[Rfam]
RNA sequence: GGCCGUUUUAAGUAGUGGUGCCGCAGGUAGCAAAAUAAAACUUUACCUGCAAAUCACUAUUUAUUGACGGAA
Numbered sequence: 001g002g003c004c005g006u007u008u009u010a011a012g013u014a015g016u017g018g019u020g021c022c023g024c025a026g027g028u029a030g031c032a033a034a035a036u037a038a039a040a041c042u043u044u045a046c047c048u049g050c051a052a053a054u055c056a057c058u059a060u061u062u063a064u065u066g067a068c069g070g071a072a
Stems, first nucleotide, its partner, number of pairs: 003070005009063010023050007

Description
Rfam assigns this 72-nucleotide RNA sequence from Acanthosepion pharaonis to the family "mir-252 microRNA precursor family". NCBI's taxonomy places the organism under Eukaryota, Eumetazoa, Coleoidea, Decapodiformes, Acanthosepion. Its Rfam clan is "mir-252 microRNA precursor family". A reference for the family is Li et al. (2009), "Direct sequencing and expression analysis of a large number of miRNAs in Aedes aegypti and a multi-species survey of novel mosquito miRNAs", BMC Genomics. Pairs were carried over by alignment from the consensus structure, which was predicted with RNAalifold.